[Rfam]
RNA: S4-Clostridia ribosomal protein leader
RNA sequence: GAAAGGGCAUGGAUACCGAAACAUGCCUGGACAAAAAGGGAAAUCCUUAAAAGUCCCUAUUAAA
Dot-bracket structure: ....(((((((..........)))))))((((....................))))........